[Rfam]
RNA: Small nucleolar RNA Z157/R69/R10
Organism: Rosa chinensis
Nucleotides: 098
Stems, first nucleotide, its partner, number of pairs: 003096001005094004038068003044062006
Number, partner (000 for none) and nucleotide at each position: 001000a002000a003096g004000u005094g006093u007092g008091c009000a010000g011000u012000g013000a014000c015000g016000a017000g018000g019000c020000u021000u022000u023000u024000u025000u026000g027000c028000g029000g030000a031000c032000u033000a034000g035000a036000g037000u038068u039067u040066a041000u042000g043000a044062u045061c046060u047059g048058g049057g050000u051000u052000c053000u054000u055000c056000a057049c058048c059047c060046a061045g062044a063000a064000g065000u066040u067039g068038a069000u070000u071000a072000c073000a074000a075000a076000c077000c078000c079000u080000u081000g082000g083000c084000u085000g086000u087000c088000u089000g090000a091008g092007c093006a094005c095000c096003c097000a098000a